The record is a 112-nucleotide sequence from Melghirimyces thermohalophilus, which matches "SAM riboswitch aptamer (S box leader)" in Rfam. Lineage of the source: Bacteria > Bacillota > Bacilli > Thermoactinomycetaceae > Melghirimyces. The family's consensus secondary structure is taken from published work. About the family: The SAM riboswitch is found upstream of a number of genes which code for proteins involved in methionine or cysteine biosynthesis in Gram-positive bacteria. The SAM riboswitch acts at the level of transcription termination control. The predicted structure consists of a complex stem-loop region followed by a single stem loop terminator region.

RNA sequence: UCGUUAUCCAGAGAGGUGGAGGGACUGGCCCGAUGAAGCCCGGCAACCCGCCUGAGAAUGAUCCAGGCACGGUGCCAAAUCCUGCAACGCUUGGGGCGUUGAAAGAUAAGGA
Numbered sequence: 001u002c003g004u005u006a007u008c009c010a011g012a013g014a015g016g017u018g019g020a021g022g023g024a025c026u027g028g029c030c031c032g033a034u035g036a037a038g039c040c041c042g043g044c045a046a047c048c049c050g051c052c053u054g055a056g057a058a059u060g061a062u063c064c065a066g067g068c069a070c071g072g073u074g075c076c077a078a079a080u081c082c083u084g085c086a087a088c089g090c091u092u093g094g095g096g097c098g099u100u101g102a103a104a105g106a107u108a109a110g111g112a
Base pairs, nucleotide, nucleotide: 001112002111004109005108006107007106008105013041015040016039017038021031022030023029025084027082028081042076043075044074045073047072048071050068051067052066053065080104085101086100087099088098089097090096